[Rfam]
RNA sequence: GCAAUGAGUAGAAGCGGUCAAAUUUGGUGUCGAGUUCCAACAAACCAAAUUCGGGCAUUGCUCACUGC
Numbered sequence: 001g002c003a004a005u006g007a008g009u010a011g012a013a014g015c016g017g018u019c020a021a022a023u024u025u026g027g028u029g030u031c032g033a034g035u036u037c038c039a040a041c042a043a044a045c046c047a048a049a050u051u052c053g054g055g056c057a058u059u060g061c062u063c064a065c066u067g068c
Stems, first nucleotide, its partner, number of pairs: 005064006015053001018055002021051007
The record is a 68-nucleotide RNA sequence from Marinomonas sp. MWYL1, which matches "Xanthine riboswitch aptamer (NMT1 RNA)" in Rfam.
Rfam's curators put it in the seed alignment.
The literature on the family includes a 2020 paper in RNA by Yu and Breaker, "A bacterial riboswitch class senses xanthine and uric acid to regulate genes associated with purine oxidation".